Small nucleolar RNA SNORD42: a 65-nucleotide RNA sequence from Ornithorhynchus anatinus. The organism belongs to Ornithorhynchus, within Eukaryota. A reference for the family is Galardi et al. (2002), "Purified box C/D snoRNPs are able to reproduce site-specific 2'-O-methylation of target RNA in vitro", Mol Cell Biol. It scores 55 bits against the family's covariance model. Its family is annotated with RNA processing and nucleolus in the Gene Ontology.
RNA sequence: GUGUCAAUGAUGGAAAACUUUCCUGGCUGAGAACAGUGAUGUUGUCAAAGGAACCACUGAUGCAC
Numbered sequence: 001g002u003g004u005c006a007a008u009g010a011u012g013g014a015a016a017a018c019u020u021u022c023c024u025g026g027c028u029g030a031g032a033a034c035a036g037u038g039a040u041g042u043u044g045u046c047a048a049a050g051g052a053a054c055c056a057c058u059g060a061u062g063c064a065c
Base pairs, nucleotide, nucleotide: 001065002064003063004062